[Rfam]
RNA sequence: UCGUCGCGUCGCAACUGGCGUCAGGUGGAUCACCACCGGGGAGCGACGAACCAUGCCGACGACGGGUCGAUCGCCUGGGCCCCGGGU
Numbered sequence: 001u002c003g004u005c006g007c008g009u010c011g012c013a014a015c016u017g018g019c020g021u022c023a024g025g026u027g028g029a030u031c032a033c034c035a036c037c038g039g040g041g042a043g044c045g046a047c048g049a050a051c052c053a054u055g056c057c058g059a060c061g062a063c064g065g066g067u068c069g070a071u072c073g074c075c076u077g078g079g080c081c082c083c084g085g086g087u
Base pairs, nucleotide, nucleotide: 003052007048008047009046010045011044012043015040016039017075018074019073020072025036026035027034028033064082065081066080067079068078
Dot-bracket structure: ..(...((((((..(([[[[....((((....))))..))..))))))...)...........(((((...]]]]..))))).....
This 87-nucleotide sequence from Promicromonospora citrea belongs to the Rfam family "ZMP/ZTP riboswitch aptamer (pfl RNA motif)".
Gene Ontology terms of the family: one-carbon metabolic process and regulation of purine nucleotide biosynthetic process.